The record is a 104-nucleotide RNA sequence from Olea europaea, which matches "Small nucleolar RNA Z103" in Rfam. It scores 81 bits against the family's covariance model. The base pairs follow the family's consensus structure, which was predicted with PFOLD. It is annotated as a C/D-box small nucleolar RNA. The source organism's lineage runs through Eukaryota, Magnoliopsida, eudicotyledons, asterids and Olea europaea. On this family, see Chen et al., Nucleic Acids Res 2003: "The high diversity of snoRNAs in plants: identification and comparative study of 120 snoRNA genes from Oryza sativa". Rfam 15.1 lists 2,844 matches to the family in 233 species.

[Rfam]
RNA sequence: AUGGAAGUGAUGAUUUUUUCCCCAGAUGAUUCGAAGCUGAAAUUACUGAGCGCUCUUUUGUUUUUCUCCUCUUGGAGAAAAUUAAGCCAGAUUUUCUGAUCCAU
Number, nucleotide and partner (000 for none) at each position: 001a104002u103003g102004g101005a100006a000007g000008u000009g000010a000011u000012g000013a000014u000015u000016u000017u000018u000019u000020c000021c000022c000023c000024a000025g000026a000027u000028g000029a000030u000031u000032c000033g000034a000035a000036g000037c000038u000039g000040a000041a000042a000043u000044u000045a000046c000047u000048g000049a000050g000051c000052g000053c000054u000055c000056u000057u000058u000059u000060g000061u000062u000063u000064u000065u000066c000067u000068c000069c000070u000071c000072u000073u000074g000075g000076a000077g000078a000079a000080a000081a000082u000083u000084a000085a000086g000087c000088c000089a000090g000091a000092u000093u000094u000095u000096c000097u000098g000099a000100u005101c004102c003103a002104u001